[Rfam]
RNA: Streptomyces sRNA 4677
Nucleotides: 224
Base pairs, nucleotide, nucleotide: 001058071086072085073084074083075082076081101137103135104134105133161195162194163193164192165191167189168188169187171184172183173182174181206222207221208220209219210218
Number, partner (000 for none) and nucleotide at each position: 001058g002000u003000u004000u005000c006000u007000u008000u009000u010000g011000c012000u013000u014000c015000g016000c017000c018000a019000u020000a021000a022000c023000c024000a025000g026000g027000g028000a029000a030000a031000g032000a033000a034000c035000c036000u037000u038000g039000c040000c041000c042000a043000a044000c045000c046000c047000c048000u049000c050000c051000a052000g053000c054000c055000u056000c057000c058001c059000c060000c061000g062000c063000g064000g065000g066000c067000u068000c069000g070000c071086u072085c073084a074083c075082u076081c077000g078000c079000a080000c081076g082075g083074g084073u085072g086071a087000a088000c089000a090000a091000g092000u093000c094000c095000a096000a097000c098000u099000g100000g101137g102000c103135u104134g105133g106000a107000u108000u109000u110000c111000c112000g113000a114000c115000u116000g117000g118000u119000u120000g121000c122000c123000g124000g125000g126000c127000a128000u129000a130000u131000g132000c133105u134104c135103g136000c137101c138000c139000c140000g141000a142000c143000a144000a145000c146000u147000c148000c149000c150000a151000g152000a153000c154000a155000u156000g157000a158000g159000a160000c161195g162194g163193c164192c165191c166000c167189c168188g169187u170000c171184g172183g173182g174181a175000c176000g177000g178000c179000a180000a181174u182173c183172c184171c185000g186000g187169g188168c189167g190000a191165g192164g193163g194162c195161c196000u197000g198000a199000c200000c201000a202000a203000u204000c205000a206222g207221g208220a209219a210218g211000c212000a213000g214000c215000a216000a217000c218210c219209u220208u221207c222206c223000c224000c